[Rfam]
RNA sequence: UUUAUAUGAUGAUGAAAAAAAAACAAAGUAAUGAUUUUACUCAAUAUUACUUUUUAUAUAUUCUUUUUUAAAAAGUAAUAUAUGUAAAGUCACAUGAUCGCAAAAAUUGAGUAGUUUUCAAUCUGAUAAAA
Numbered sequence: 001u002u003u004a005u006a007u008g009a010u011g012a013u014g015a016a017a018a019a020a021a022a023a024c025a026a027a028g029u030a031a032u033g034a035u036u037u038u039a040c041u042c043a044a045u046a047u048u049a050c051u052u053u054u055u056a057u058a059u060a061u062u063c064u065u066u067u068u069u070a071a072a073a074a075g076u077a078a079u080a081u082a083u084g085u086a087a088a089g090u091c092a093c094a095u096g097a098u099c100g101c102a103a104a105a106a107u108u109g110a111g112u113a114g115u116u117u118u119c120a121a122u123c124u125g126a127u128a129a130a131a
Base pairs, nucleotide, nucleotide: 004127011123028099032092033091034090035089046079047078048077049076050075052073053072054071055070056069058067060065
RNA: small nucleolar RNA snoR15